[Rfam]
RNA sequence: AGAUGAGAGAAACACCCCGCUCACAGGCGACUGUGGGCGACGCCAGGUCGUGGCCUCCCCAGCUCCGUCCUGGUCGUGCCUUCGCGCACACCUCCGGAGUUUCAGGCUCCGGAACUCCUCACCGGUCGGA
Numbered sequence: 001a002g003a004u005g006a007g008a009g010a011a012a013c014a015c016c017c018c019g020c021u022c023a024c025a026g027g028c029g030a031c032u033g034u035g036g037g038c039g040a041c042g043c044c045a046g047g048u049c050g051u052g053g054c055c056u057c058c059c060c061a062g063c064u065c066c067g068u069c070c071u072g073g074u075c076g077u078g079c080c081u082u083c084g085c086g087c088a089c090a091c092c093u094c095c096g097g098a099g100u101u102u103c104a105g106g107c108u109c110c111g112g113a114a115c116u117c118c119u120c121a122c123c124g125g126u127c128g129g130a
Stems, first nucleotide, its partner, number of pairs: 004121004009117002018039009042074006049067002052064003076089004093113008122129002
The record is a 130-nucleotide sequence from Streptomyces jeddahensis, which matches "Streptomyces RNA 5676" in Rfam.
Rfam's curators write: Identified by deep sequencing of transcriptome at the end of exponential growth phase. Appears longer on northern blot than sequencing transcript. This indicates processing step.
The literature on the family includes a 2011 paper in RNA Biol by Vockenhuber et al., "Deep sequencing-based identification of small non-coding RNAs in Streptomyces coelicolor".
It is annotated as a small RNA.